The record is a 380-nucleotide part of an RNA from Podilymbus podiceps, which matches "Eukaryotic large subunit ribosomal RNA" in Rfam. Pairs were carried over by alignment from the consensus structure, which is taken from published work. Its Rfam clan is "LSU clan".

RNA sequence: GACUCGAUACUGCGACAGUAAUCCAACUUAGUACGAGAGGAACAGUUGGUUCGGAUACUUGGUAAAUGCGGCUAGUUGAAAAGCUAGUGCCGCGACGCUACCAUCCGUUGGAUAAUGACUGAACGCCUCUUAAGUCAGAAUCCAUGCUGGAUAUGCAGUGUUAUUCACCGCCUCCUCUGUUACAUGCAAAGAAACAGGCCUUUUUGGGUCCUACUUCUCACCAAAGCUCCACGCGACACAGCAAGGAGCGAGAAACACAAUUCCCAACAAAGGAGGCGAUACAUCCAUUGCAGACGACUUUGGUGCAACCGGGUAUUGUAAGUACGAGAGUAGGCUUGUCCUACGAUCUACUAAGAUUUAGCCUGUGUUGUUUGAUGUGG
Numbered sequence: 001g002a003c004u005c006g007a008u009a010c011u012g013c014g015a016c017a018g019u020a021a022u023c024c025a026a027c028u029u030a031g032u033a034c035g036a037g038a039g040g041a042a043c044a045g046u047u048g049g050u051u052c053g054g055a056u057a058c059u060u061g062g063u064a065a066a067u068g069c070g071g072c073u074a075g076u077u078g079a080a081a082a083g084c085u086a087g088u089g090c091c092g093c094g095a096c097g098c099u100a101c102c103a104u105c106c107g108u109u110g111g112a113u114a115a116u117g118a119c120u121g122a123a124c125g126c127c128u129c130u131u132a133a134g135u136c137a138g139a140a141u142c143c144a145u146g147c148u149g150g151a152u153a154u155g156c157a158g159u160g161u162u163a164u165u166c167a168c169c170g171c172c173u174c175c176u177c178u179g180u181u182a183c184a185u186g187c188a189a190a191g192a193a194a195c196a197g198g199c200c201u202u203u204u205u206g207g208g209u210c211c212u213a214c215u216u217c218u219c220a221c222c223a224a225a226g227c228u229c230c231a232c233g234c235g236a237c238a239c240a241g242c243a244a245g246g247a248g249c250g251a252g253a254a255a256c257a258c259a260a261u262u263c264c265c266a267a268c269a270a271a272g273g274a275g276g277c278g279a280u281a282c283a284u285c286c287a288u289u290g291c292a293g294a295c296g297a298c299u300u301u302g303g304u305g306c307a308a309c310c311g312g313g314u315a316u317u318g319u320a321a322g323u324a325c326g327a328g329a330g331u332a333g334g335c336u337u338g339u340c341c342u343a344c345g346a347u348c349u350a351c352u353a354a355g356a357u358u359u360a361g362c363c364u365g366u367g368u369u370g371u372u373u374g375a376u377g378u379g380g
Stems, first nucleotide, its partner, number of pairs: 006162008016149004021051001023049006052107005060100003067094005072087006109144003116137005170277007281378005286302002290298001306370004311364003315357002322351003327347001330344005